[Rfam]
RNA sequence: GAUUUAUAAAGAAGCGCGGAGAGACAGGCUCUGAGAAGCGCUAGCAACCACUCCCUAUAAUAAGGAAAAGGUGCUAAAUCCUGACUCCGGCUUGGAUGGUCCAGGUCGGGAAAUAUAAACC
Numbered sequence: 001g002a003u004u005u006a007u008a009a010a011g012a013a014g015c016g017c018g019g020a021g022a023g024a025c026a027g028g029c030u031c032u033g034a035g036a037a038g039c040g041c042u043a044g045c046a047a048c049c050a051c052u053c054c055c056u057a058u059a060a061u062a063a064g065g066a067a068a069a070g071g072u073g074c075u076a077a078a079u080c081c082u083g084a085c086u087c088c089g090g091c092u093u094g095g096a097u098g099g100u101c102c103a104g105g106u107c108g109g110g111a112a113a114u115a116u117a118a119a120c121c
Stems, first nucleotide, its partner, number of pairs: 001121001003119006013042005021031003025083004043075004048071002052066003079113001086110011
RNA: SAM riboswitch aptamer (S box leader)